[Rfam]
RNA sequence: UCCCUGGUGGUCCAGUGGUUAGGACUCUGUACUUCCACUGCAGGGGGUUCGGGUUCAAUCCCUGGCUGGGGAA
Numbered sequence: 001u002c003c004c005u006g007g008u009g010g011u012c013c014a015g016u017g018g019u020u021a022g023g024a025c026u027c028u029g030u031a032c033u034u035c036c037a038c039u040g041c042a043g044g045g046g047g048u049u050c051g052g053g054u055u056c057a058a059u060c061c062c063u064g065g066c067u068g069g070g071g072a073a
Stems, first nucleotide, its partner, number of pairs: 001072007010025004027043005049065005
RNA: tRNA
Organism: Cervus elaphus